The family of this 178-nucleotide RNA from Acanthochromis polyacanthus is "U2 spliceosomal RNA". The family's RNA type in Rfam is spliceosomal small nuclear RNA. Clan: U2 clan.
[Rfam]
RNA sequence: GUCGCUUCUCGGCCUUUUGGCUAAGAUCAAGUGGAGCAUGUGUUCAUUUCAGUUGAAUAUUUCCAGAAUUUCCCUCUGGGAAUUAAUAAUGUCUGUCUUAGUCUAAAAUGUUGUUAUUGCAUAAAUUCCAAAGACUCUUCUUUCAAAUAUCUGUUUUUCAUUUCACAAGAGUGUUCUC
Numbered sequence: 001g002u003c004g005c006u007u008c009u010c011g012g013c014c015u016u017u018u019g020g021c022u023a024a025g026a027u028c029a030a031g032u033g034g035a036g037c038a039u040g041u042g043u044u045c046a047u048u049u050c051a052g053u054u055g056a057a058u059a060u061u062u063c064c065a066g067a068a069u070u071u072c073c074c075u076c077u078g079g080g081a082a083u084u085a086a087u088a089a090u091g092u093c094u095g096u097c098u099u100a101g102u103c104u105a106a107a108a109u110g111u112u113g114u115u116a117u118u119g120c121a122u123a124a125a126u127u128c129c130a131a132a133g134a135c136u137c138u139u140c141u142u143u144c145a146a147a148u149a150u151c152u153g154u155u156u157u158u159c160a161u162u163u164c165a166c167a168a169g170a171g172u173g174u175u176c177u178c
Stems, first nucleotide, its partner, number of pairs: 007026003011022004047066002051062002068084001070082005113135003117131003138171005145163004

The literature on the family includes a 1997 paper in Nucleic Acids Res by Zwieb, "The uRNA database". NCBI's taxonomy places the organism under Eukaryota, Bilateria, Chordata, Gnathostomata, Acanthochromis. A search with the family's covariance model found it, with a score of 57 bits. Rfam describes the family as follows. U2 is a small nuclear RNA (snRNA) component of the spliceosome (involved in pre-mRNA splicing). Complementary binding between U2 snRNA (in an area lying towards the 5' end but 3' to hairpin I) and the branchpoint sequence (BPS) of the intron results the bulging out of an unpaired adenosine, on the BPS, which initiates a nucleophilic attack at the intronic 5' splice site, thus starting the first of two transesterification reactions that mediate splicing. Gene Ontology terms of the family: mRNA branch site recognition, U2 snRNP and pre-mRNA branch point binding.